[Rfam]
RNA sequence: CUAAAGCAAUUUUGUAAGUCCCUCUGGAUAAGAGGGCCUGCUAAAUGCUGUAAA
Numbered sequence: 001c002u003a004a005a006g007c008a009a010u011u012u013u014g015u016a017a018g019u020c021c022c023u024c025u026g027g028a029u030a031a032g033a034g035g036g037c038c039u040g041c042u043a044a045a046u047g048c049u050g051u052a053a054a
Stems, first nucleotide, its partner, number of pairs: 013043001014041003020036006